[Rfam]
RNA: dinG RNA
Organism: Eubacterium sp. CAG:841
RNA sequence: AAUGAUACUUCUGCGAAAGCAGCCCGCGAUGUGCAUGCGGGAUACGGGGGUUACGGGCUGGAACUCUUAUGUCCGCGACACUGUAU
Numbered sequence: 001a002a003u004g005a006u007a008c009u010u011c012u013g014c015g016a017a018a019g020c021a022g023c024c025c026g027c028g029a030u031g032u033g034c035a036u037g038c039g040g041g042a043u044a045c046g047g048g049g050g051u052u053a054c055g056g057g058c059u060g061g062a063a064c065u066c067u068u069a070u071g072u073c074c075g076c077g078a079c080a081c082u083g084u085a086u
Stems, first nucleotide, its partner, number of pairs: 011022004023041006042086006050079002054075005